[Rfam]
Record summary: Shown here is a 133-nucleotide RNA from Yersinia mollaretii, a member of the family "RtT RNA". Rfam describes the family as follows. This family represents a bacterial cis-regulatory element known as RtT RNA. The exact function of RtT is unknown although it is thought that it may be involved in changing the cellular response in relation to amino acid starvation. Pairs were carried over by alignment from the consensus structure, which is taken from published work. Rfam classes the family as a cis-regulatory element. Lineage of the source: Bacteria > Gammaproteobacteria > Yersiniaceae > Yersinia > Yersinia mollaretii.
RNA sequence: UAGCUCAGUUGGUAGAGCAGUUGACUUUUAAUCAAUUGGUUAAAGGUUCGAGCCGAGCGAAGCGAGACAGCAACGCGUCAGCGUUGACCCGAAGGGCGAAUCCGCAGGAUGAGUAAUCCCGCACGAUAAGCAC
Numbered sequence: 001u002a003g004c005u006c007a008g009u010u011g012g013u014a015g016a017g018c019a020g021u022u023g024a025c026u027u028u029u030a031a032u033c034a035a036u037u038g039g040u041u042a043a044a045g046g047u048u049c050g051a052g053c054c055g056a057g058c059g060a061a062g063c064g065a066g067a068c069a070g071c072a073a074c075g076c077g078u079c080a081g082c083g084u085u086g087a088c089c090c091g092a093a094g095g096g097c098g099a100a101u102c103c104g105c106a107g108g109a110u111g112a113g114u115a116a117u118c119c120c121g122c123a124c125g126a127u128a129a130g131c132a133c
Stems, first nucleotide, its partner, number of pairs: 015124001017122002020119001022116001037098002040096002047093004054064002071086006